[Rfam]
RNA sequence: GUCCGUUCAUCCCUAACGGGACGCAUGAUCACCAAGGCAUGGAACGGGGUCUUGGU
Numbered sequence: 001g002u003c004c005g006u007u008c009a010u011c012c013c014u015a016a017c018g019g020g021a022c023g024c025a026u027g028a029u030c031a032c033c034a035a036g037g038c039a040u041g042g043a044a045c046g047g048g049g050u051c052u053u054g055g056u
Stems, first nucleotide, its partner, number of pairs: 004046005010021004031056008
RNA: Glutamine-II riboswitch aptamer